[Rfam]
RNA: 6S / SsrS RNA
RNA sequence: GCUUUCCUGCGGUGUUUGUCCGGCUUUUAUAUUCCUUGAACCGAUAAGCUUGCAUCGGUCGCCGGCAUUCCAGUCGUCUGUUGUGCGCGUUCCUUUGUCGAACGCACCUGAAGGCGGCAAGCUGGUGACACUUGAACCCCAGGGUUCAGGAUGCUAAGCCGGACGGCACUCGCGGGAAGCCC
Numbered sequence: 001g002c003u004u005u006c007c008u009g010c011g012g013u014g015u016u017u018g019u020c021c022g023g024c025u026u027u028u029a030u031a032u033u034c035c036u037u038g039a040a041c042c043g044a045u046a047a048g049c050u051u052g053c054a055u056c057g058g059u060c061g062c063c064g065g066c067a068u069u070c071c072a073g074u075c076g077u078c079u080g081u082u083g084u085g086c087g088c089g090u091u092c093c094u095u096u097g098u099c100g101a102a103c104g105c106a107c108c109u110g111a112a113g114g115c116g117g118c119a120a121g122c123u124g125g126u127g128a129c130a131c132u133u134g135a136a137c138c139c140c141a142g143g144g145u146u147c148a149g150g151a152u153g154c155u156a157a158g159c160c161g162g163a164c165g166g167c168a169c170u171c172g173c174g175g176g177a178a179g180c181c182c
Base pairs, nucleotide, nucleotide: 003179004178005177006176007175008174009173010172011171012169013168014167015166017165018164019163033151034150035149037148038147039146040145041144042143057129059128061126062125063124064123065122066121068120073118074117075116076115077114078113083107084106088100089099091097